[Rfam]
RNA: Plastid-psbA-1 3UTR RNA
RNA sequence: GUUGAAGUUCCAUCUACAAAUGGAUAAAAUUUAUUUUUUAGUUUAGUAUAUACGAGUUUUUUUUUUUUGAAAGUAAAAGUAAAGGGGCAAUAAAAAAUUUCUUGUUCGAUCAAGAAAUUAGUAUUGCCCCUUU
Numbered sequence: 001g002u003u004g005a006a007g008u009u010c011c012a013u014c015u016a017c018a019a020a021u022g023g024a025u026a027a028a029a030u031u032u033a034u035u036u037u038u039u040a041g042u043u044u045a046g047u048a049u050a051u052a053c054g055a056g057u058u059u060u061u062u063u064u065u066u067u068u069g070a071a072a073g074u075a076a077a078a079g080u081a082a083a084g085g086g087g088c089a090a091u092a093a094a095a096a097a098u099u100u101c102u103u104g105u106u107c108g109a110u111c112a113a114g115a116a117a118u119u120a121g122u123a124u125u126g127c128c129c130c131u132u133u
Base pairs, nucleotide, nucleotide: 009024010023011022012021013020081133082132083131084130085129086128087127088126089125090124091123092122096119097118099116100115101114102113103112